[Rfam]
RNA sequence: AGUUCGAAACCGCUCAAUCCCCGGACUGCCCGGGGAGCGGGGGACCCAGGAUGUGGGGCGAGUCGCCGAUCUCGGCGUAGCGCAUCUUUCAGCGCGAGCCCGUCAGCUAACCCCGUAGGCCGACGAAAGAGGACAC
Numbered sequence: 001a002g003u004u005c006g007a008a009a010c011c012g013c014u015c016a017a018u019c020c021c022c023g024g025a026c027u028g029c030c031c032g033g034g035g036a037g038c039g040g041g042g043g044a045c046c047c048a049g050g051a052u053g054u055g056g057g058g059c060g061a062g063u064c065g066c067c068g069a070u071c072u073c074g075g076c077g078u079a080g081c082g083c084a085u086c087u088u089u090c091a092g093c094g095c096g097a098g099c100c101c102g103u104c105a106g107c108u109a110a111c112c113c114c115g116u117a118g119g120c121c122g123a124c125g126a127a128a129g130a131g132g133a134c135a136c
Stems, first nucleotide, its partner, number of pairs: 012120003018036007037116006047055002056101003064077004080095004
Shown here is a 136-nucleotide RNA from Paraconexibacter algicola, a member of the family "c-di-AMP riboswitch aptamer (ydaO/yuaA leader)". About the family: This family represents a conserved RNA structure found upstream of the ydaO and yuaA genes in Bacillus subtilis and related genes in other bacteria. Rfam 15.1 lists 7,607 matches to the family in 2,262 species. Lineage of the source: Bacteria > Actinomycetota > Thermoleophilia > Solirubrobacterales > Paraconexibacter.